[Rfam]
RNA sequence: CGGUUAAGUGAUGACUUGACAAACGAAGUAUCAUGUCAUCACACCUUGUCACGGACACUCCAUUGUCACAUCAUCACUUUCAAUGAUGUGACAAUGUUGCGUCAGUGAUUGAACAUGAUGACGUGACACUGCAUCUAUCACACUAUCACUUAACGGAA
Number, nucleotide and partner (000 for none) at each position: 001c156002g000003g154004u153005u152006a151007a150008g149009u148010g147011a146012u145013g144014a000015c000016u000017u140018g139019a138020c000021a136022a000023a134024c000025g132026a000027a130028g129029u128030a000031u126032c125033a124034u123035g122036u121037c120038a119039u118040c117041a116042c000043a000044c000045c000046u111047u000048g109049u108050c107051a106052c105053g000054g103055a102056c101057a000058c099059u000060c000061c000062a000063u000064u000065g000066u000067c000068a000069c000070a087071u086072c085073a084074u083075c000076a000077c000078u000079u000080u000081c000082a000083a074084u073085g072086a071087u070088g000089u000090g000091a000092c000093a000094a000095u000096g000097u000098u000099g058100c000101g056102u055103c054104a000105g052106u051107g050108a049109u048110u000111g046112a000113a000114c000115a000116u041117g040118a039119u038120g037121a036122c035123g034124u033125g032126a031127c000128a029129c028130u027131g000132c025133a000134u023135c000136u021137a000138u019139c018140a017141c000142a000143c000144u013145a012146u011147c010148a009149c008150u007151u006152a005153a004154c003155g000156g001157a000158a000
RNA: MIR4371 microRNA precursor family
Organism: Glycine max